[Rfam]
RNA sequence: CCUCUUAGUGAGGAAGAUCUUACAUUGUAUAUUCUUGGUGGCUUAGAUCCCGAUUAUGAUGCAUUGGUGGUCUCUAUUACCUAUAGAGUUGAAAUCAUAUCCCUUGCUGACUUACAUGGGUUUUUGCUAAGCCAUGAGA
Number, nucleotide and partner (000 for none) at each position: 001c000002c000003u000004c138005u137006u136007a135008g000009u000010g000011a000012g000013g000014a000015a000016g000017a000018u000019c000020u000021u000022a000023c000024a000025u000026u000027g000028u000029a000030u000031a000032u000033u000034c000035u000036u000037g000038g000039u000040g000041g000042c000043u000044u000045a000046g000047a000048u000049c000050c000051c000052g000053a000054u000055u000056a000057u000058g000059a000060u000061g000062c000063a000064u000065u000066g000067g000068u000069g000070g000071u000072c000073u000074c000075u000076a000077u000078u000079a000080c000081c000082u000083a000084u000085a000086g000087a000088g108089u000090u106091g105092a104093a000094a000095u000096c000097a000098u000099a000100u000101c000102c000103c000104u092105u091106g090107c000108u088109g000110a000111c000112u000113u000114a000115c000116a000117u000118g000119g000120g000121u000122u000123u000124u000125u000126g000127c000128u000129a000130a000131g000132c000133c000134a000135u007136g006137a005138g004139a000
Small nucleolar RNA Z247: a 139-nucleotide RNA sequence from Solanum tuberosum.
The source organism's lineage runs through Eukaryota, Spermatophyta, Mesangiospermae, eudicotyledons and Solanum.
It scores 57 bits against the family's covariance model.
It is annotated as a C/D-box small nucleolar RNA.
Pairs were carried over by alignment from the consensus structure, which was predicted with PFOLD.